Shown here is a 62-nucleotide sequence from Otolemur garnettii, a member of the family "U7 small nuclear RNA". The base pairs follow the family's consensus structure, which was predicted with PFOLD.
RNA sequence: UAGUGUUAUAGCUUUUUCAGAAUUUGUCUAGCAAAUUUUCUGGUCUCCACUGGAAUACCCCU
Numbered sequence: 001u002a003g004u005g006u007u008a009u010a011g012c013u014u015u016u017u018c019a020g021a022a023u024u025u026g027u028c029u030a031g032c033a034a035a036u037u038u039u040c041u042g043g044u045c046u047c048c049a050c051u052g053g054a055a056u057a058c059c060c061c062u
Stems, first nucleotide, its partner, number of pairs: 036057001038055007
Dot-bracket structure: ...................................(.(((((((....))))))).).....

The match comes from Rfam's covariance-model search (46 bits).
Rfam's curators write: Animal histone pre-mRNAs are spliced by a different mechanism than nuclear pre-mRNAs and self-splicing introns. This processing involves the U7 snRNP, which contains only one RNA species: U7. The 5' end of U7 RNA is thought to base-pair to a conserved spacer element downstream of the cleavage site in histone pre-mRNA. This family contains a number of annotated U7 pseudogenes.
The family has 49 seed sequences and 10,439 matches in Rfam 15.1.